[Rfam]
RNA: tRNA
RNA sequence: GCAAGUAUAGUUUUAAACAAAACAUUAGACUGUGAUUCUAAGAAUAGAAGUUAAACUCUUCUUACCUGCC
Numbered sequence: 001g002c003a004a005g006u007a008u009a010g011u012u013u014u015a016a017a018c019a020a021a022a023c024a025u026u027a028g029a030c031u032g033u034g035a036u037u038c039u040a041a042g043a044a045u046a047g048a049a050g051u052u053a054a055a056c057u058c059u060u061c062u063u064a065c066c067u068g069c070c
Stems, first nucleotide, its partner, number of pairs: 001069003005065003010023004025041005046062005